[Rfam]
RNA sequence: UAACGUUGAACCCUAUGAGGUUGCAAUAAAACCGACCAUGCAACGGGGGUCGGU
Numbered sequence: 001u002a003a004c005g006u007u008g009a010a011c012c013c014u015a016u017g018a019g020g021u022u023g024c025a026a027u028a029a030a031a032c033c034g035a036c037c038a039u040g041c042a043a044c045g046g047g048g049g050u051c052g053g054u
Base pairs, nucleotide, nucleotide: 004045005044006043007042008041010021011020012019031054032053033052034051035050036049037048
Glutamine-II riboswitch aptamer: a 54-nucleotide RNA sequence.
It is one of the family's seed sequences.
Rfam links the family to the GO term glutamine binding.
A reference for the family is Huang et al. (2019), "Structure and ligand binding of the glutamine-II riboswitch", Nucleic Acids Res.